[Rfam]
Notes:
The record is a 153-nucleotide RNA from Fimbriiglobus ruber, which matches "c-di-AMP riboswitch aptamer (ydaO/yuaA leader)" in Rfam. The organism belongs to Fimbriiglobus, within Bacteria. The match comes from Rfam's covariance-model search (56 bits).
RNA sequence: UCUUAUAUGCAGCCGAAUCCCGCGGCACCACGCGGGAGCGGGGGACCCACCGGGAGCGACGAGAGACGCUCCCCGGGGCGCAGGUGAGCCACGCUCACCGGGGCACGUUCCGGCCCUAGCCCGUCAGCUAACCUCGCAGGCCGGCGCGGAGAU
Numbered sequence: 001u002c003u004u005a006u007a008u009g010c011a012g013c014c015g016a017a018u019c020c021c022g023c024g025g026c027a028c029c030a031c032g033c034g035g036g037a038g039c040g041g042g043g044g045a046c047c048c049a050c051c052g053g054g055a056g057c058g059a060c061g062a063g064a065g066a067c068g069c070u071c072c073c074c075g076g077g078g079c080g081c082a083g084g085u086g087a088g089c090c091a092c093g094c095u096c097a098c099c100g101g102g103g104c105a106c107g108u109u110c111c112g113g114c115c116c117u118a119g120c121c122c123g124u125c126a127g128c129u130a131a132c133c134u135c136g137c138a139g140g141c142c143g144g145c146g147c148g149g150a151g152a153u
Base pairs, nucleotide, nucleotide: 012141013140014139018037019036020035021034022033023032024031038137039136040135041134042133043132048075076122077121078120084098085097086096087095101116102115103114104113